RNA sequence: GUAUAUUUUUGGCAAACCCACCGAAAGGCGGGGACGCAAAGCUAUGGGUCUAAGGACGAAGGUCUAUGAUUGCCAGGUUGCCCGU
Numbered sequence: 001g002u003a004u005a006u007u008u009u010u011g012g013c014a015a016a017c018c019c020a021c022c023g024a025a026a027g028g029c030g031g032g033g034a035c036g037c038a039a040a041g042c043u044a045u046g047g048g049u050c051u052a053a054g055g056a057c058g059a060a061g062g063u064c065u066a067u068g069a070u071u072g073c074c075a076g077g078u079u080g081c082c083c084g085u
Base pairs, nucleotide, nucleotide: 012037013036017032018031019030021028022027040079041078042077043076045075046074047073048070049069050068055064056063057062
The family of this 85-nucleotide RNA from Allolucifera butyrica is "c-di-GMP-I riboswitch aptamer". For this family Rfam cites "Identification of 22 candidate structured RNAs in bacteria using the CMfinder comparative genomics pipeline" (Weinberg et al., Nucleic Acids Res, 2007). From the family's description: GEMM was predicted in a large-scale screen for bacterial structured RNA regulatory elements. The base pairs follow the family's consensus structure, which is taken from published work.